[Rfam]
RNA sequence: CGUUGCUCAUUCACCUUUCUAUGUCAGCGUUUUUUAAACAGACUACAUAAACCUCCGAAUGACGCACAUAAAGGUGCCUGCCGUCCAACUUUUGAUAAAUGCUUUCGGGCUUAUCAUGCACAGGGCGAAACGUUGAGUAAGGCGCCGCCUA
Number, nucleotide and partner (000 for none) at each position: 001c000002g000003u000004u000005g065006c064007u062008c061009a060010u059011u058012c057013a000014c000015c000016u000017u000018u000019c000020u049021a048022u047023g046024u045025c000026a044027g043028c000029g000030u000031u000032u000033u000034u000035u000036a000037a000038a000039c000040a000041g000042a000043c027044u026045a024046c023047a022048u021049a020050a000051a000052c000053c000054u000055c000056c000057g012058a011059a010060u009061g008062a007063c000064g006065c005066a000067c000068a000069u000070a000071a000072a000073g146074g145075u144076g143077c142078c141079u140080g000081c000082c127083g126084u125085c124086c123087a000088a000089c000090u000091u000092u000093u116094g115095a114096u113097a112098a111099a000100u000101g000102c000103u000104u000105u000106c000107g000108g000109g000110c000111u098112u097113a096114u095115c094116a093117u000118g000119c000120a000121c000122a000123g086124g085125g084126c083127g082128a000129a000130a138131c137132g000133u000134u000135g000136a000137g131138u130139a000140a079141g078142g077143c076144g075145c074146c073147g000148c000149c000150u000151a000
The record is a 151-nucleotide RNA sequence from Citrobacter sp. JGM124, which matches "Glm Y RNA activator of glmS mRNA" in Rfam.
NCBI's taxonomy places the organism under Bacteria, Pseudomonadati, Gammaproteobacteria, Enterobacterales, Citrobacter.
By type it is a small RNA.
Clan: Glm clan.
This family consists of a number of bacterial RNA genes of around 167 bases in length. The tke1 RNA gene is present in Escherichia coli, Shigella flexneri, Yersinia pestis and Salmonella species where it is found between the yfhK and purL genes. The function of this RNA is unknown.
On this family, see Rivas et al., Curr Biol 2001: "Computational identification of noncoding RNAs in E. coli by comparative genomics".